[Rfam]
RNA: Small nucleolar RNA SNORD21
RNA sequence: GCUAUGUGAUGAUAUCCCGAUGACUGAAUACUCUGUAGUUGGUCCUUGGGGUGUGCGUGAUGUACUGCACUGUUUCAAGACGGGACUGAUGGCAAC
Dot-bracket structure: ((((.....................................................................................))))...